[Rfam]
RNA sequence: CAAAAACUUCAGGGUAGGGUGUAAUUCCCAACCGGCGGUAAACCCCGCGAGCCUAAAGGCAUGAACCGAGUGAAAUUCCGGUGGCGACAGUAUAGUCUGGAUGAAAGAAGUAUGUC
Numbered sequence: 001c002a003a004a005a006a007c008u009u010c011a012g013g014g015u016a017g018g019g020u021g022u023a024a025u026u027c028c029c030a031a032c033c034g035g036c037g038g039u040a041a042a043c044c045c046c047g048c049g050a051g052c053c054u055a056a057a058g059g060c061a062u063g064a065a066c067c068g069a070g071u072g073a074a075a076u077u078c079c080g081g082u083g084g085c086g087a088c089a090g091u092a093u094a095g096u097c098u099g100g101a102u103g104a105a106a107g108a109a110g111u112a113u114g115u116c
Base pairs, nucleotide, nucleotide: 004113006111007110008109009108010107017029018028019027031096032095033086034085035048036047037046038045043084044083053059065082066081067080068079070078088099089098090097

The family of this 116-nucleotide RNA from Amedibacterium intestinale is "FMN riboswitch aptamer (RFN element)".
NCBI's taxonomy places the organism under Bacteria, Bacillati, Bacillota, Erysipelotrichaceae, Amedibacterium.
The base pairs follow the family's consensus structure, which is taken from published work.